[Rfam]
RNA: A. fumigatus sRNA Afu_254
Organism: Aspergillus heteromorphus
RNA sequence: CCAUCCAGCUUUCCAGCCUCUAAAUUACUUUUUGUAUCGCCUUCACCGGUUCAUACCAAUCCCAGCCAAUAUGUCUCCCUGCUCCUGCAACUGCUGCCAAGGCAACUGCUCCAGCUGCUCUUGCUCUUCUUGCAGCGUGAGUAUUCCUUGACU
Numbered sequence: 001c002c003a004u005c006c007a008g009c010u011u012u013c014c015a016g017c018c019u020c021u022a023a024a025u026u027a028c029u030u031u032u033u034g035u036a037u038c039g040c041c042u043u044c045a046c047c048g049g050u051u052c053a054u055a056c057c058a059a060u061c062c063c064a065g066c067c068a069a070u071a072u073g074u075c076u077c078c079c080u081g082c083u084c085c086u087g088c089a090a091c092u093g094c095u096g097c098c099a100a101g102g103c104a105a106c107u108g109c110u111c112c113a114g115c116u117g118c119u120c121u122u123g124c125u126c127u128u129c130u131u132g133c134a135g136c137g138u139g140a141g142u143a144u145u146c147c148u149u150g151a152c153u
Stems, first nucleotide, its partner, number of pairs: 080104004087097003108133002117124002